[Rfam]
The record is a 132-nucleotide sequence from Phyllostomus discolor, which matches "U11 spliceosomal RNA" in Rfam. A search with the family's covariance model found it, with a score of 64 bits. Pairs were carried over by alignment from the consensus structure, which is taken from published work. Gene Ontology terms of the family: mRNA 5'-splice site recognition, U11 snRNP and pre-mRNA 5'-splice site binding. The source organism's lineage runs through Eukaryota, Bilateria, Gnathostomata, Theria and Phyllostomus.

RNA sequence: AAAAGGGGCUUCUGCAGUGAGUGGUACUCGUGGGGCCGCGAGCCUGCUGUACGUGCGGGGUGACAUCAAGAGGCUUUGGAAGUGUAAUUUUUGGUGUCUGGGCAGCUGGCGGUUGUCGGUCCUGGUGCCCAU
Numbered sequence: 001a002a003a004a005g006g007g008g009c010u011u012c013u014g015c016a017g018u019g020a021g022u023g024g025u026a027c028u029c030g031u032g033g034g035g036c037c038g039c040g041a042g043c044c045u046g047c048u049g050u051a052c053g054u055g056c057g058g059g060g061u062g063a064c065a066u067c068a069a070g071a072g073g074c075u076u077u078g079g080a081a082g083u084g085u086a087a088u089u090u091u092u093g094g095u096g097u098c099u100g101g102g103c104a105g106c107u108g109g110c111g112g113u114u115g116u117c118g119g120u121c122c123u124g125g126u127g128c129c130c131a132u
Base pairs, nucleotide, nucleotide: 008083009082010081011080012079013026014025015024017022027055029053030052031051032050034048035047036046038044056078057077058076059075060074061072100130101129102128103127105126106125107124108123109122111121112120113119114118